[Rfam]
RNA sequence: CCAAAGGCUCUUUUAAGAGCCACUAAAGUAUCAAUAUAAGGGCUG
Numbered sequence: 001c002c003a004a005a006g007g008c009u010c011u012u013u014u015a016a017g018a019g020c021c022a023c024u025a026a027a028g029u030a031u032c033a034a035u036a037u038a039a040g041g042g043c044u045g
Base pairs, nucleotide, nucleotide: 006021007020008019009018010017011016